The record is a 263-nucleotide RNA from Helianthus annuus, which matches "RNase MRP" in Rfam. The organism belongs to Helianthus, within Eukaryota. Rfam 15.1 lists 3,510 matches to the family in 2,315 species. It is annotated as a ribozyme.

[Rfam]
RNA sequence: AGACCAACGAACGAUGUGAUUGGGCUUCGAACCACUUAGUGGUUUAUGCUCAGGAAAGUCCCCGGGCCCAUUACCGCAGAGAUGCGGGCCUGGAAACAGUUUAUUCUUCGGAGCAAAUGAAUCAGGUUGGGCCAGAAAUGGUUUGACGGGCUGAGACUAGUGUGGAGCCUUAUGGGUUAUUGCUCGAAGUUAAUUUGGCCGAUGUCACAGUCAUUCACAUGGUCCUUUGUGACUAACUGAACGGGGCUUAUGAUUCGUUGGUC
Numbered sequence: 001a002g003a004c005c006a007a008c009g010a011a012c013g014a015u016g017u018g019a020u021u022g023g024g025c026u027u028c029g030a031a032c033c034a035c036u037u038a039g040u041g042g043u044u045u046a047u048g049c050u051c052a053g054g055a056a057a058g059u060c061c062c063c064g065g066g067c068c069c070a071u072u073a074c075c076g077c078a079g080a081g082a083u084g085c086g087g088g089c090c091u092g093g094a095a096a097c098a099g100u101u102u103a104u105u106c107u108u109c110g111g112a113g114c115a116a117a118u119g120a121a122u123c124a125g126g127u128u129g130g131g132c133c134a135g136a137a138a139u140g141g142u143u144u145g146a147c148g149g150g151c152u153g154a155g156a157c158u159a160g161u162g163u164g165g166a167g168c169c170u171u172a173u174g175g176g177u178u179a180u181u182g183c184u185c186g187a188a189g190u191u192a193a194u195u196u197g198g199c200c201g202a203u204g205u206c207a208c209a210g211u212c213a214u215u216c217a218c219a220u221g222g223u224c225c226u227u228u229g230u231g232a233c234u235a236a237c238u239g240a241a242c243g244g245g246g247c248u249u250a251u252g253a254u255u256c257g258u259u260g261g262u263c
Base pairs, nucleotide, nucleotide: 002263003262004261005260006259007258008257009256010255011254014220015219016218017217018216019215022051023050024049025048030044031043032042033041034040035039056249057248058247060246061245062244063243075086076085077084078083087102088101090099091098092097104192111185112184113183114182115181116180120178121177122176123175129170130169131168132167156163157162222233223232224231